RNA: Alphaproteobacterial sRNA ar7
Organism: Ciceribacter lividus
RNA sequence: CAUCGGCGACUGAUCACGCCGUAGUCUGAAAGAGGCCCGUCCCCCGCCGCUUCAGACUUGGGCAAAGGCCUUAUCCCCCUCUCCGGGCCUUUGUCCCAGCUUUUCGGCGAAGCCGCCGUGGCCCCUCCUCCAAGCCACGGCGGCUUUGC
Numbered sequence: 001c002a003u004c005g006g007c008g009a010c011u012g013a014u015c016a017c018g019c020c021g022u023a024g025u026c027u028g029a030a031a032g033a034g035g036c037c038c039g040u041c042c043c044c045c046g047c048c049g050c051u052u053c054a055g056a057c058u059u060g061g062g063c064a065a066a067g068g069c070c071u072u073a074u075c076c077c078c079c080u081c082u083c084c085g086g087g088c089c090u091u092u093g094u095c096c097c098a099g100c101u102u103u104u105c106g107g108c109g110a111a112g113c114c115g116c117c118g119u120g121g122c123c124c125c126u127c128c129u130c131c132a133a134g135c136c137a138c139g140g141c142g143g144c145u146u147u148g149c
Base pairs, nucleotide, nucleotide: 025056026055027054028053029052030051034048035047036046060096061095062094063093064092065091066090067089068088069087070086110145113143114142115141116140117139118138119137120136121135122134
Dot-bracket structure: ........................((((((...(((.........)))..))))))...(((((((((((...............))))))))))).............(..((((((((((...........)))))))))).)....